[Rfam]
RNA sequence: UGACGGUACUCAGACCGGUUUCGUCUACCCACCUCACUCUUUUUACAAGAGGUGGUCAGGCAGACUCGUCAGUGAGUGAAGUCAGUGAGGGAAACACUGGAGAAGGUUAUCACCCUUCAAAUCCAGGCACAUUAACUCAC
Numbered sequence: 001u002g003a004c005g006g007u008a009c010u011c012a013g014a015c016c017g018g019u020u021u022c023g024u025c026u027a028c029c030c031a032c033c034u035c036a037c038u039c040u041u042u043u044u045a046c047a048a049g050a051g052g053u054g055g056u057c058a059g060g061c062a063g064a065c066u067c068g069u070c071a072g073u074g075a076g077u078g079a080a081g082u083c084a085g086u087g088a089g090g091g092a093a094a095c096a097c098u099g100g101a102g103a104a105g106g107u108u109a110u111c112a113c114c115c116u117u118c119a120a121a122u123c124c125a126g127g128c129a130c131a132u133u134a135a136c137u138c139a140c
Stems, first nucleotide, its partner, number of pairs: 001084004009076004013070001017066004085140005097126005

This 140-nucleotide RNA sequence belongs to the Rfam family "Hairpin ribozyme 1 from viruses-like metatranscriptomes". It is one of the family's seed sequences. The literature on the family includes a 2021 paper in Nucleic Acids Res by Weinberg et al., "Identification of over 200-fold more hairpin ribozymes than previously known in diverse circular RNAs".